[Rfam]
RNA sequence: CGGGUGGUAUCCUCAGGGAGCUAUACUGGCGCAGACUUUUCAAUUAUUUUUAACAAUAAAAAACGAUAACCGCUUAGAGCCGCAGGGACUGGGACGGAAAG
Numbered sequence: 001c002g003g004g005u006g007g008u009a010u011c012c013u014c015a016g017g018g019a020g021c022u023a024u025a026c027u028g029g030c031g032c033a034g035a036c037u038u039u040u041c042a043a044u045u046a047u048u049u050u051u052a053a054c055a056a057u058a059a060a061a062a063a064c065g066a067u068a069a070c071c072g073c074u075u076a077g078a079g080c081c082g083c084a085g086g087g088a089c090u091g092g093g094a095c096g097g098a099a100a101g
Stems, first nucleotide, its partner, number of pairs: 001028003004024005010019002070097003073093005080087002

A member of the RNA family "pan motif" from Propionispora vibrioides, 101 nucleotides long. The match comes from Rfam's covariance-model search (50 bits). By type it is a cis-regulatory element.